A member of the RNA family "mir-454 microRNA precursor family" from Etheostoma spectabile, 103 nucleotides long.
[Rfam]
RNA sequence: UUCAAUCCACCUUGCAGAAGAGACCCUAUCAAUAUUGCCUCUGCUUUCACUAGAGUUAACAGAGUAGUGCAAUAUUGUUAUAGGGUCUGACUAUGAGGGAUGC
Numbered sequence: 001u002u003c004a005a006u007c008c009a010c011c012u013u014g015c016a017g018a019a020g021a022g023a024c025c026c027u028a029u030c031a032a033u034a035u036u037g038c039c040u041c042u043g044c045u046u047u048c049a050c051u052a053g054a055g056u057u058a059a060c061a062g063a064g065u066a067g068u069g070c071a072a073u074a075u076u077g078u079u080a081u082a083g084g085g086u087c088u089g090a091c092u093a094u095g096a097g098g099g100a101u102g103c
Base pairs, nucleotide, nucleotide: 021088022087023086024085025084026083027082028081029080030077031076032075033074034073035072036071037070038069041067042066043065044064045062
Pairs were carried over by alignment from the consensus structure, which was predicted with RNAalifold. Rfam 15.1 lists 696 matches to the family in 601 species. Gene Ontology terms of the family: miRNA-mediated post-transcriptional gene silencing and RISC complex.